[Rfam]
Overview:
Shown here is a 126-nucleotide RNA from Cebus imitator, a member of the family "U4atac minor spliceosomal RNA". The family's RNA type in Rfam is spliceosomal small nuclear RNA. Gene Ontology terms of the family: mRNA 5'-splice site recognition, U4atac snRNP and spliceosomal tri-snRNP complex assembly. The match comes from Rfam's covariance-model search (76 bits). A reference for the family is Lorkovic et al. (2005), "Evolutionary conservation of minor U12-type spliceosome between plants and humans", RNA. The base pairs follow the family's consensus structure, which is taken from published work.

RNA sequence: ACCAUCUUUUUCUUGGGGUUGUGCUACCAUCCAAUGAGCACAUAAUCAGGGCAAUAUUGCUAACGCCUAAACACCACACCCACAUCAACUAGAGCUUUGCUUUACCUUGGUACAAUUUUUGGAAAA
Number, nucleotide and partner (000 for none) at each position: 001a000002c000003c000004a000005u000006c018007u017008u016009u015010u000011u000012c000013u000014u000015g009016g008017g007018g006019u000020u000021g060022u059023g058024c000025u000026a055027c000028c000029a000030u051031c050032c049033a000034a000035u000036g000037a000038g046039c000040a000041c000042a000043u000044a000045a000046u038047c000048a000049g032050g031051g030052c000053a000054a000055u026056a000057u000058u023059g022060c021061u000062a000063a000064c000065g000066c000067c000068u000069a000070a000071a000072c000073a000074c000075c000076a000077c000078a000079c000080c000081c000082a000083c000084a111085u110086c109087a108088a000089c000090u104091a103092g102093a101094g100095c099096u000097u000098u000099g095100c094101u093102u092103u091104a090105c000106c000107u000108u087109g086110g085111u084112a000113c000114a000115a000116u000117u000118u000119u000120u000121g000122g000123a000124a000125a000126a000